[Rfam]
RNA sequence: GUAGAAGAUAGGUAAGGAACUAUCUUCAAUACAAAUAUUUCAUUACAUAAGGAGGUAAUGA
Numbered sequence: 001g002u003a004g005a006a007g008a009u010a011g012g013u014a015a016g017g018a019a020c021u022a023u024c025u026u027c028a029a030u031a032c033a034a035a036u037a038u039u040u041c042a043u044u045a046c047a048u049a050a051g052g053a054g055g056u057a058a059u060g061a
Stems, first nucleotide, its partner, number of pairs: 002031002004026001006025006040061007
This 61-nucleotide RNA sequence belongs to the Rfam family "cow-rumen-4 RNA".